[Rfam]
RNA sequence: UUCUUAUUGGAUGAUAAUUGUCACAUGUCAUGUUCUGAUUGGUCAAUGAAAACAUUUCAUCUUUCAUGAAGUUGGUAUCCAAUCAGAACAUGACAUACGACUGUCAUCAUCC
Numbered sequence: 001u002u003c004u005u006a007u008u009g010g011a012u013g014a015u016a017a018u019u020g021u022c023a024c025a026u027g028u029c030a031u032g033u034u035c036u037g038a039u040u041g042g043u044c045a046a047u048g049a050a051a052a053c054a055u056u057u058c059a060u061c062u063u064u065c066a067u068g069a070a071g072u073u074g075g076u077a078u079c080c081a082a083u084c085a086g087a088a089c090a091u092g093a094c095a096u097a098c099g100a101c102u103g104u105c106a107u108c109a110u111c112c
Stems, first nucleotide, its partner, number of pairs: 020101003025096002029092003033088004038083005
RNA: MIR1520 microRNA precursor family